[Rfam]
RNA sequence: CAGGGUGGACGCAUGGUCGCUCCGGUCUUCGGGCCGGUGAGGAAAGUCCGAACACCGCAGGGCACGGUGGUUCUUAACGGGAACUUUGGGAAACCGAAGGAAAGUGCCACAGAAAAUACACCGCCGAUGGAACGGGCAACUGUUCACAGGUAAGGUUGAAAUGGUGAGGUAAGAGCUCACCGCCUUUAUGGUGACAUAAAGGGCAAGGUAAACCCCACCGGGUGCAAGACCAAAUAGGGAAACGUUUGAGGGCGGCUCGUCCAAAGUUUCCGGGUAGGUUGCACGAGGUGCCGGGCAACCGGCAUCCCAGUCAAAUGAUCAUGGCCUGCUUCGGCAGGAACAGAAUUCGGCUUAUAGUCCACCCUGUUUU
Numbered sequence: 001c002a003g004g005g006u007g008g009a010c011g012c013a014u015g016g017u018c019g020c021u022c023c024g025g026u027c028u029u030c031g032g033g034c035c036g037g038u039g040a041g042g043a044a045a046g047u048c049c050g051a052a053c054a055c056c057g058c059a060g061g062g063c064a065c066g067g068u069g070g071u072u073c074u075u076a077a078c079g080g081g082a083a084c085u086u087u088g089g090g091a092a093a094c095c096g097a098a099g100g101a102a103a104g105u106g107c108c109a110c111a112g113a114a115a116a117u118a119c120a121c122c123g124c125c126g127a128u129g130g131a132a133c134g135g136g137c138a139a140c141u142g143u144u145c146a147c148a149g150g151u152a153a154g155g156u157u158g159a160a161a162u163g164g165u166g167a168g169g170u171a172a173g174a175g176c177u178c179a180c181c182g183c184c185u186u187u188a189u190g191g192u193g194a195c196a197u198a199a200a201g202g203g204c205a206a207g208g209u210a211a212a213c214c215c216c217a218c219c220g221g222g223u224g225c226a227a228g229a230c231c232a233a234a235u236a237g238g239g240a241a242a243c244g245u246u247u248g249a250g251g252g253c254g255g256c257u258c259g260u261c262c263a264a265a266g267u268u269u270c271c272g273g274g275u276a277g278g279u280u281g282c283a284c285g286a287g288g289u290g291c292c293g294g295g296c297a298a299c300c301g302g303c304a305u306c307c308c309a310g311u312c313a314a315a316u317g318a319u320c321a322u323g324g325c326c327u328g329c330u331u332c333g334g335c336a337g338g339a340a341c342a343g344a345a346u347u348c349g350g351c352u353u354a355u356a357g358u359c360c361a362c363c364c365u366g367u368u369u370u
Base pairs, nucleotide, nucleotide: 001366002365003364004363005362006361007360008359009358010357011355012323013322014321015320016319017318018317020039022037023036024035025034026033027032044353045352046351048350049349050348051347052346053224054223055222056221060258061257062256063255065220066219067218068217069216070084071083072082073081074080085098086097087096088095089094099215100214104213105212106209107208108207121155122154123151124150125149128146129145130144131143163181164180165179166178167177168176182204183202184201185200186199187198188197189196190195228280229279230278231277238271239270240269241268242267243266250262251261252260253259287306288305289304290303291302292301293300294299
RNA: Bacterial RNase P class A